RNA: ffh sRNA
Organism: Rhodovulum imhoffii
RNA sequence: CCUGUACAGGAUCGCCACCCGUCAGCGAGGUUUCGCCCGCGGGUGCCAUACGC
Numbered sequence: 001c002c003u004g005u006a007c008a009g010g011a012u013c014g015c016c017a018c019c020c021g022u023c024a025g026c027g028a029g030g031u032u033u034c035g036c037c038c039g040c041g042g043g044u045g046c047c048a049u050a051c052g053c
Base pairs, nucleotide, nucleotide: 016045017044018043019042020041021040022039025036026035027034028033